[Rfam]
The record is a 35-nucleotide sequence, which matches "DUF805b RNA" in Rfam.
RNA sequence: AAAGCGGAACCCGAAAAGCUAUAACAGAGUAGGGA
Number, nucleotide and partner (000 for none) at each position: 001a000002a000003a020004g019005c018006g000007g000008a000009a000010c034011c033012c032013g000014a000015a000016a000017a000018g005019c004020u003021a000022u000023a000024a000025c000026a000027g000028a000029g000030u000031a000032g012033g011034g010035a000